The family of this 290-nucleotide RNA from Rhizodiscina lignyota is "A. fumigatus sRNA Afu_309". For this family Rfam cites "Small ncRNA transcriptome analysis from Aspergillus fumigatus suggests a novel mechanism for regulation of protein synthesis" (Jochl et al., Nucleic Acids Res, 2008). Lineage of the source: Eukaryota > Opisthokonta > leotiomyceta > Rhizodiscinaceae > Rhizodiscina.

RNA sequence: ACCAAACAACAGAUCUGUGUUCAGAAGUCCUGCCUGUUCUCUGAGCAGUGUGGUUGCAUUUCUGGACAGCUCGACCGUGUUAUGGAGCCAUCUUGCACCACCAUGAUGUCAAUCUUCCGGUUGACAGAUCUUAGAACAAUCGGCGCCUGUUGGCCUGAGUUCCUCUGGGUCUAACCUGGUGUUGAGCUCGGUUGAUGGGACUGCUGAGGGCGUCAUAUUCCGCAUCCCUUUGCUGAUUUUUGGGCCGUCGGCUCGUGAAGUUGGGGAAAAACCAUGACUUGCCUACAGAC
Numbered sequence: 001a002c003c004a005a006a007c008a009a010c011a012g013a014u015c016u017g018u019g020u021u022c023a024g025a026a027g028u029c030c031u032g033c034c035u036g037u038u039c040u041c042u043g044a045g046c047a048g049u050g051u052g053g054u055u056g057c058a059u060u061u062c063u064g065g066a067c068a069g070c071u072c073g074a075c076c077g078u079g080u081u082a083u084g085g086a087g088c089c090a091u092c093u094u095g096c097a098c099c100a101c102c103a104u105g106a107u108g109u110c111a112a113u114c115u116u117c118c119g120g121u122u123g124a125c126a127g128a129u130c131u132u133a134g135a136a137c138a139a140u141c142g143g144c145g146c147c148u149g150u151u152g153g154c155c156u157g158a159g160u161u162c163c164u165c166u167g168g169g170u171c172u173a174a175c176c177u178g179g180u181g182u183u184g185a186g187c188u189c190g191g192u193u194g195a196u197g198g199g200a201c202u203g204c205u206g207a208g209g210g211c212g213u214c215a216u217a218u219u220c221c222g223c224a225u226c227c228c229u230u231u232g233c234u235g236a237u238u239u240u241u242g243g244g245c246c247g248u249c250g251g252c253u254c255g256u257g258a259a260g261u262u263g264g265g266g267a268a269a270a271a272c273c274a275u276g277a278c279u280u281g282c283c284u285a286c287a288g289a290c
Stems, first nucleotide, its partner, number of pairs: 011131008019067006026060003029056001030053004035047002037044001076123002080119001083111003087107001089105001143204003152193004157189006209283003212278005225267005232261003243253004